[Rfam]
RNA sequence: GGAAUAUAAGAACCCGUUUCUGAAUUUUUAACUAAAAAAAUUAAGAAUUGGUUCUUAAAUAAGAGUUUUAAAAACCAGUUUUUAAUUUUUUUAGUUAAAAGUUAAGAGACGAGUUCUUAUAUUCC
Numbered sequence: 001g002g003a004a005u006a007u008a009a010g011a012a013c014c015c016g017u018u019u020c021u022g023a024a025u026u027u028u029u030a031a032c033u034a035a036a037a038a039a040a041u042u043a044a045g046a047a048u049u050g051g052u053u054c055u056u057a058a059a060u061a062a063g064a065g066u067u068u069u070a071a072a073a074a075c076c077a078g079u080u081u082u083u084a085a086u087u088u089u090u091u092u093a094g095u096u097a098a099a100a101g102u103u104a105a106g107a108g109a110c111g112a113g114u115u116c117u118u119a120u121a122u123u124c125c
Stems, first nucleotide, its partner, number of pairs: 001125013015111007023103017041085007
Annotation: MIR9563 microRNA precursor family: a 125-nucleotide RNA from Brassica oleracea. The match comes from Rfam's covariance-model search (108 bits). The organism belongs to Brassica oleracea, within Eukaryota. Pairs were carried over by alignment from the consensus structure, which was predicted with RNAalifold.